Purine riboswitch aptamer: a 99-nucleotide sequence from Clostridium acetobutylicum.

[Rfam]
RNA sequence: UAUAUAAAAAACUAAAUUUCUCGUAUACACCGGUAAUAUGGUCCGGAAGUUUCUACCUGCUGCCAUAAAUAGCAGACUACGGGGUGUUAUUGAUAAUAU
Numbered sequence: 001u002a003u004a005u006a007a008a009a010a011a012c013u014a015a016a017u018u019u020c021u022c023g024u025a026u027a028c029a030c031c032g033g034u035a036a037u038a039u040g041g042u043c044c045g046g047a048a049g050u051u052u053c054u055a056c057c058u059g060c061u062g063c064c065a066u067a068a069a070u071a072g073c074a075g076a077c078u079a080c081g082g083g084g085u086g087u088u089a090u091u092g093a094u095a096a097u098a099u
Base pairs, nucleotide, nucleotide: 019084020083021082022081023080024079025078030046031045032044033043057075058074059073060072061071062070
Overview: The family's consensus secondary structure is taken from published work.